The family of this 76-nucleotide RNA sequence from Microcaecilia unicolor is "Small nucleolar RNA SNORD72". The family's RNA type in Rfam is C/D-box small nucleolar RNA. A reference for the family is Huttenhofer et al. (2001), "RNomics: an experimental approach that identifies 201 candidates for novel, small, non-messenger RNAs in mouse", EMBO J. Gene Ontology terms of the family: RNA processing and nucleolus. About the family: snoRNA HBII-240 belongs to the CD family of snoRNAs. It is the human orthologue of the mouse MBII-240 and is predicted to guide 2'O-ribose methylation of the large 28S rRNA at residue U4590. A search with the family's covariance model found it, with a score of 62 bits.
[Rfam]
RNA sequence: UAUUUAUCUAUGAUGAUGUUCAAAAUGUCUGAACAUAUGAAAUCAUAAAUGAUUUUAGUAUUUACUGAGAUAAAUG
Numbered sequence: 001u002a003u004u005u006a007u008c009u010a011u012g013a014u015g016a017u018g019u020u021c022a023a024a025a026u027g028u029c030u031g032a033a034c035a036u037a038u039g040a041a042a043u044c045a046u047a048a049a050u051g052a053u054u055u056u057a058g059u060a061u062u063u064a065c066u067g068a069g070a071u072a073a074a075u076g
Stems, first nucleotide, its partner, number of pairs: 002075007